The family of this 80-nucleotide RNA sequence from Zea mays is "Small nucleolar RNA U54". Taxonomically the source falls in Zea (Eukaryota, Viridiplantae, Poaceae, Tripsacinae). The family's consensus secondary structure was predicted with PFOLD. The family's RNA type in Rfam is C/D-box small nucleolar RNA. From the family's description: U54 is a C/D box small nucleolar RNA, which acts as a methylation guide for 18S ribosomal RNA in plants. The family has 21 seed sequences and 614 matches in Rfam 15.1.
[Rfam]
RNA sequence: GGCUCAAUGAUUUCAACCAGUCAUUCUUGAUAUAUACGCUAUUCUGAUUGCUGCUGUUGAAAAAAAUAUCCAUGAGAGCA
Numbered sequence: 001g002g003c004u005c006a007a008u009g010a011u012u013u014c015a016a017c018c019a020g021u022c023a024u025u026c027u028u029g030a031u032a033u034a035u036a037c038g039c040u041a042u043u044c045u046g047a048u049u050g051c052u053g054c055u056g057u058u059g060a061a062a063a064a065a066a067u068a069u070c071c072a073u074g075a076g077a078g079c080a
Stems, first nucleotide, its partner, number of pairs: 002079004
Dot-bracket structure: .((((......................................................................)))).